[Rfam]
RNA sequence: AUGAUUACCCUUACAAAAACACAGACUUUGUUUUGCAAUGCAGUAAGUGCUUUUUGUUGGGGUAGUUUUG
Numbered sequence: 001a002u003g004a005u006u007a008c009c010c011u012u013a014c015a016a017a018a019a020c021a022c023a024g025a026c027u028u029u030g031u032u033u034u035g036c037a038a039u040g041c042a043g044u045a046a047g048u049g050c051u052u053u054u055u056g057u058u059g060g061g062g063u064a065g066u067u068u069u070g
Base pairs, nucleotide, nucleotide: 004066005065006064007063008062009061010060011059013057014056015055016054017053018051020049021048022047025044026043027042
The family of this 70-nucleotide RNA from Cyclopterus lumpus is "miR-430 microRNA precursor family". Rfam links the family to the GO terms miRNA-mediated post-transcriptional gene silencing and RISC complex. A reference for the family is Giraldez et al. (2005), "MicroRNAs regulate brain morphogenesis in zebrafish", Science. Its Rfam clan is "mir-290 clan". Pairs were carried over by alignment from the consensus structure, which was predicted with RNAalifold. The organism belongs to Cyclopterus, within Eukaryota.